[Rfam]
RNA sequence: AAGGUUUUGGGUUGCGUGUCAGGAGUGCAUUUGCACUGAAACAUUCUGAAGCUUGUAAAUGCACUAUCUGGUACGACAUUCCAGAACGU
Numbered sequence: 001a002a003g004g005u006u007u008u009g010g011g012u013u014g015c016g017u018g019u020c021a022g023g024a025g026u027g028c029a030u031u032u033g034c035a036c037u038g039a040a041a042c043a044u045u046c047u048g049a050a051g052c053u054u055g056u057a058a059a060u061g062c063a064c065u066a067u068c069u070g071g072u073a074c075g076a077c078a079u080u081c082c083a084g085a086a087c088g089u
Stems, first nucleotide, its partner, number of pairs: 008083004015075009025064001027062009
A member of the RNA family "mir-277 microRNA precursor family" from Drosophila pseudoobscura, 89 nucleotides long.
Gene Ontology terms of the family: RISC complex and miRNA-mediated post-transcriptional gene silencing.
The source organism's lineage runs through Eukaryota, Panorpida, Cyclorrhapha, Drosophilinae and Sophophora.
The literature on the family includes a 2010 paper in BMC Genomics by Liu et al., "MicroRNAs of Bombyx mori identified by Solexa sequencing".